[Rfam]
RNA: small nucleolar RNA snoR127
RNA sequence: CUGGAAUGAUGAAAGUUAGCCAAAUCGUAUAAUGAUGUGCUCCUCCUGGUGUCAUGCACUUGGUGAAAAUUUCUUUUUUCACAAGCUUGAUGAGCUGACAGGAGUUGAAGUUUGCAUCAGUAUGUGAUGAUAAAAACUGAGAUUGGUAACUUGCUGACCAGA
Numbered sequence: 001c002u003g004g005a006a007u008g009a010u011g012a013a014a015g016u017u018a019g020c021c022a023a024a025u026c027g028u029a030u031a032a033u034g035a036u037g038u039g040c041u042c043c044u045c046c047u048g049g050u051g052u053c054a055u056g057c058a059c060u061u062g063g064u065g066a067a068a069a070u071u072u073c074u075u076u077u078u079u080c081a082c083a084a085g086c087u088u089g090a091u092g093a094g095c096u097g098a099c100a101g102g103a104g105u106u107g108a109a110g111u112u113u114g115c116a117u118c119a120g121u122a123u124g125u126g127a128u129g130a131u132a133a134a135a136a137c138u139g140a141g142a143u144u145g146g147u148a149a150c151u152u153g154c155u156g157a158c159c160a161g162a
Base pairs, nucleotide, nucleotide: 001161002160003159004158